[Rfam]
RNA sequence: GGAUGAACCCUUGGAGAGACUCGAAAUAGAGCACCGAAGGAGAAAGCUAUAAAAGCGAAACUCUCAGGUAAAAGGACAGGGGAAAGGUA
Number, nucleotide and partner (000 for none) at each position: 001g000002g000003a000004u000005g000006a000007a000008c082009c081010c080011u079012u078013g077014g000015a000016g000017a000018g000019a000020c031021u030022c029023g000024a000025a000026a000027u000028a000029g022030a021031g020032c000033a069034c068035c067036g065037a064038a000039g000040g063041a062042g061043a000044a000045a000046g056047c055048u000049a000050u000051a000052a000053a000054a000055g047056c046057g000058a000059a000060a000061c042062u041063c040064u037065c036066a000067g035068g034069u033070a000071a000072a000073a000074g000075g000076a000077c013078a012079g011080g010081g009082g008083a000084a000085a000086g000087g000088u000089a000